The record is a 140-nucleotide sequence from Actinidia chinensis, which matches "Small nucleolar RNA snoR136" in Rfam. It is annotated as an H/ACA-box small nucleolar RNA. The organism belongs to Actinidia chinensis, within Eukaryota. A search with the family's covariance model found it, with a score of 54 bits. A reference for the family is Chen and Wu (2009), "Mining small RNA sequencing data: a new approach to identify small nucleolar RNAs in Arabidopsis", Nucleic Acids Res.
[Rfam]
RNA sequence: AUGGCUUCCUUUGUUUUUUGAAAUGGUUCCUCUGAAAACAUGUUUGGAUGGAAUUGUACAUAAGUGAAGCUUGAAUAAUGUUCCUCUCGCUAUCCAAGGCUACCCUUUAUGGUGCAUUUUGGACUUGAGGAAAUACAUUU
Numbered sequence: 001a002u003g004g005c006u007u008c009c010u011u012u013g014u015u016u017u018u019u020g021a022a023a024u025g026g027u028u029c030c031u032c033u034g035a036a037a038a039c040a041u042g043u044u045u046g047g048a049u050g051g052a053a054u055u056g057u058a059c060a061u062a063a064g065u066g067a068a069g070c071u072u073g074a075a076u077a078a079u080g081u082u083c084c085u086c087u088c089g090c091u092a093u094c095c096a097a098g099g100c101u102a103c104c105c106u107u108u109a110u111g112g113u114g115c116a117u118u119u120u121g122g123a124c125u126u127g128a129g130g131a132a133a134u135a136c137a138u139u140u
Stems, first nucleotide, its partner, number of pairs: 002073001003071003008066001010064004017058001019056002026054005031048003036045003081132006089124001093123005100112003